RNA: Lysine riboswitch aptamer
RNA sequence: AGGGCUGGAAGAGGUGCGUUAUUCAGGUAUUUGAGUGGAGGAGAGCAAACUCCCGCGAAACUCAAAGAGGGGAAUUAACGCCGAGAAGCACUGCGUUUUGCUUACGUAAUGCUUCGGGCGACUGGGUUGAAUCCCAGCGACUGUCACCAACACAUUUGGUGGAGAGCUUCUGGUCUU
Numbered sequence: 001a002g003g004g005c006u007g008g009a010a011g012a013g014g015u016g017c018g019u020u021a022u023u024c025a026g027g028u029a030u031u032u033g034a035g036u037g038g039a040g041g042a043g044a045g046c047a048a049a050c051u052c053c054c055g056c057g058a059a060a061c062u063c064a065a066a067g068a069g070g071g072g073a074a075u076u077a078a079c080g081c082c083g084a085g086a087a088g089c090a091c092u093g094c095g096u097u098u099u100g101c102u103u104a105c106g107u108a109a110u111g112c113u114u115c116g117g118g119c120g121a122c123u124g125g126g127u128u129g130a131a132u133c134c135c136a137g138c139g140a141c142u143g144u145c146a147c148c149a150a151c152a153c154a155u156u157u158g159g160u161g162g163a164g165a166g167c168u169u170c171u172g173g174u175c176u177u
Base pairs, nucleotide, nucleotide: 006172007171008170009169010168011167016081017080018079019078020077021076023074030066031065032064033063034062035061036060085115086114087113088112089111090110092108093107094106095105096104116142117141119139122137123136124135125134126133144162145161146160147159148158149157150156